[Rfam]
RNA sequence: CCCUUCUUUUUAAAGCACCCUGCUAAAACUGCGACAGUCGAGGCUUUGAUGCCUAGCUCUUGUGGCCGUGUAAGCAUGGGUACACCAUGGAAGGAGAGCAUAAGCACAGUUUCGAAAGUGAGGCAUGGGAGGACCUCUUUCUUAAUGUCCAGUAUCCUUUGGCUCAAGAUGCUGUGCAACAGAC
Numbered sequence: 001c002c003c004u005u006c007u008u009u010u011u012a013a014a015g016c017a018c019c020c021u022g023c024u025a026a027a028a029c030u031g032c033g034a035c036a037g038u039c040g041a042g043g044c045u046u047u048g049a050u051g052c053c054u055a056g057c058u059c060u061u062g063u064g065g066c067c068g069u070g071u072a073a074g075c076a077u078g079g080g081u082a083c084a085c086c087a088u089g090g091a092a093g094g095a096g097a098g099c100a101u102a103a104g105c106a107c108a109g110u111u112u113c114g115a116a117a118g119u120g121a122g123g124c125a126u127g128g129g130a131g132g133a134c135c136u137c138u139u140u141c142u143u144a145a146u147g148u149c150c151a152g153u154a155u156c157c158u159u160u161g162g163c164u165c166a167a168g169a170u171g172c173u174g175u176g177c178a179a180c181a182g183a184c
Stems, first nucleotide, its partner, number of pairs: 018080002021076004028069002031066001034060001037057002040054001042053003104177007128153001131150003
RNA: Small nucleolar RNA SNORA81
Organism: Gadus morhua